RNA sequence: GAGUUAGAAAUGAUUAUAAAUAUAAUUCUUCAUUCUGACUUGCUUAAUUUGGGCAUGACAAACCUCUUAUUACACCCAUAAAAUUUGAGUUAC
Numbered sequence: 001g002a003g004u005u006a007g008a009a010a011u012g013a014u015u016a017u018a019a020a021u022a023u024a025a026u027u028c029u030u031c032a033u034u035c036u037g038a039c040u041u042g043c044u045u046a047a048u049u050u051g052g053g054c055a056u057g058a059c060a061a062a063c064c065u066c067u068u069a070u071u072a073c074a075c076c077c078a079u080a081a082a083a084u085u086u087g088a089g090u091u092a093c
Base pairs, nucleotide, nucleotide: 003093004092006091007090
Shown here is a 93-nucleotide sequence from Theobroma cacao, a member of the family "Small nucleolar RNA snoR8a". The literature on the family includes a 2001 paper in RNA by Brown et al., "Multiple snoRNA gene clusters from Arabidopsis". A search with the family's covariance model found it, with a score of 50 bits. Pairs were carried over by alignment from the consensus structure, which was predicted with WAR. The family has 7 seed sequences and 956 matches in Rfam 15.1. Gene Ontology terms of the family: nucleolus and RNA processing. The organism belongs to Theobroma, within Eukaryota.